[Rfam]
The family of this 116-nucleotide RNA from Lactuca sativa is "Small nucleolar RNA Z278". A search with the family's covariance model found it, with a score of 44 bits. Its family is annotated with nucleolus and RNA processing in the Gene Ontology.

RNA sequence: GACGAUGAUGAUAUAAUCCAAAUGUUGGAGGAAUAGGGGAUCCAAGACCUUGUUUUACAGGGAGAACCACUUGGUGAAGCUGUAUUUCAGAUGAUAUUACCGGAUUUAACUGAGGU
Numbered sequence: 001g002a003c004g005a006u007g008a009u010g011a012u013a014u015a016a017u018c019c020a021a022a023u024g025u026u027g028g029a030g031g032a033a034u035a036g037g038g039g040a041u042c043c044a045a046g047a048c049c050u051u052g053u054u055u056u057a058c059a060g061g062g063a064g065a066a067c068c069a070c071u072u073g074g075u076g077a078a079g080c081u082g083u084a085u086u087u088c089a090g091a092u093g094a095u096a097u098u099a100c101c102g103g104a105u106u107u108a109a110c111u112g113a114g115g116u
Base pairs, nucleotide, nucleotide: 001116003114048062049061050060051059052058

The base pairs follow the family's consensus structure, which was predicted with PFOLD. Taxonomically the source falls in Lactuca (Eukaryota, Euphyllophyta, Magnoliopsida, Cichorioideae).